[Rfam]
RNA sequence: GUACUAGGUACGCCGUCUAGGACCGACCCGUCCUGUGGGUCAACGUCGGCAUGACCUGGUCCUCCGGG
Numbered sequence: 001g002u003a004c005u006a007g008g009u010a011c012g013c014c015g016u017c018u019a020g021g022a023c024c025g026a027c028c029c030g031u032c033c034u035g036u037g038g039g040u041c042a043a044c045g046u047c048g049g050c051a052u053g054a055c056c057u058g059g060u061c062c063u064c065c066g067g068g
Base pairs, nucleotide, nucleotide: 012050013049014048015047017045025041026040027039028038029037055068056067057066058065
Source information:
Shown here is a 68-nucleotide RNA from Oceanobacillus picturae, a member of the family "Bacillaceae-1 RNA". A search with the family's covariance model found it, with a score of 37 bits. Lineage of the source: Bacteria > Bacilli > Caryophanales > Bacillaceae > Oceanobacillus. The base pairs follow the family's consensus structure, which is taken from published work.